Nucleotides: 065
Stems, first nucleotide, its partner, number of pairs: 004062004009057009019047002022044002025041003
Number, partner (000 for none) and nucleotide at each position: 001000g002000g003000g004062g005061c006060a007059a008000u009057c010056a011055a012054a013053g014052u015051g016050g017049a018000g019047g020046c021000c022044c023043u024000c025041u026040c027039c028000g029000a030000a031000g032000c033000u034000c035000g036000u037000c038000c039027g040026g041025a042000a043023a044022g045000u046020g047019c048000a049017u050016c051015c052014a053013u054012u055011u056010u057009g058000c059007u060006u061005g062004u063000c064000u065000c
Shown here is a 65-nucleotide RNA from Neotoma lepida, a member of the family "mir-290 microRNA precursor family". The organism belongs to Neotoma, within Eukaryota. Rfam links the family to the GO terms RISC complex and miRNA-mediated post-transcriptional gene silencing.